RNA: mir-317 microRNA precursor family
Organism: Ignelater luminosus
RNA sequence: AUGUUUAGGUGCUGGGGACCACCCUGUGUUUUCUGAAUUUUGACACAGUGAACACAGCUGGUGGUAUCUCAGUAGCUUUGCAUUU
Numbered sequence: 001a002u003g004u005u006u007a008g009g010u011g012c013u014g015g016g017g018a019c020c021a022c023c024c025u026g027u028g029u030u031u032u033c034u035g036a037a038u039u040u041u042g043a044c045a046c047a048g049u050g051a052a053c054a055c056a057g058c059u060g061g062u063g064g065u066a067u068c069u070c071a072g073u074a075g076c077u078u079u080g081c082a083u084u085u
Base pairs, nucleotide, nucleotide: 008076010074011073012072015070016068017067018065019064021062022061023060024057025056026055028053030051031050